The record is a 96-nucleotide RNA sequence from Flavobacterium noncentrifugens, which matches "Flavo-1 RNA" in Rfam. Taxonomically the source falls in Flavobacterium (Bacteria, Bacteroidota, Flavobacteriales, Flavobacteriaceae). The match comes from Rfam's covariance-model search (67 bits).
RNA sequence: CCCUAGCCCUGAUUGAAAUGGAAAUCCUUUUUUGAGGUCAUUGUGAGGCACGAAGCAAUCCCGAAAAAAAGAUUGCAAUGGAAAGCAGGAUCAGCU
Numbered sequence: 001c002c003c004u005a006g007c008c009c010u011g012a013u014u015g016a017a018a019u020g021g022a023a024a025u026c027c028u029u030u031u032u033u034g035a036g037g038u039c040a041u042u043g044u045g046a047g048g049c050a051c052g053a054a055g056c057a058a059u060c061c062c063g064a065a066a067a068a069a070a071g072a073u074u075g076c077a078a079u080g081g082a083a084a085g086c087a088g089g090a091u092c093a094g095c096u
Stems, first nucleotide, its partner, number of pairs: 009088003013084002018079002023074004029069005036062001
The base pairs follow the family's consensus structure, which is taken from published work.